[Rfam]
RNA sequence: AUAGCUGAAUUGUUGGCUAUACGGUUUUUAGAUGGCCCCGGUAAUCUUUCUAGUCGCCAAACUUGAAGAAGAUUAUCGGGGUUUUCACUU
Numbered sequence: 001a002u003a004g005c006u007g008a009a010u011u012g013u014u015g016g017c018u019a020u021a022c023g024g025u026u027u028u029u030a031g032a033u034g035g036c037c038c039c040g041g042u043a044a045u046c047u048u049u050c051u052a053g054u055c056g057c058c059a060a061a062c063u064u065g066a067a068g069a070a071g072a073u074u075a076u077c078g079g080g081g082u083u084u085u086c087a088c089u090u
Stems, first nucleotide, its partner, number of pairs: 001020005030090002033087001034084002036081013
Dot-bracket structure: (((((..........))))).........((.((((((((((((((((....................))))))))))))).))..).))
Notes
The record is a 90-nucleotide sequence from Escherichia coli, which matches "CopA-like RNA" in Rfam. In several groups of bacterial plasmids, antisense RNAs regulate copy number through inhibition of replication initiator protein synthesis. These RNAs are characterised by a long hairpin structure interrupted by several unpaired residues or bulged loops. Gene Ontology term of the family: mRNA binding. It is one of the family's seed sequences. The organism belongs to Escherichia, within Bacteria. A reference for the family is Gerhart et al. (1986), "Structural analysis of an RNA molecule involved in replication control of plasmid R1", Nucleic Acids Res.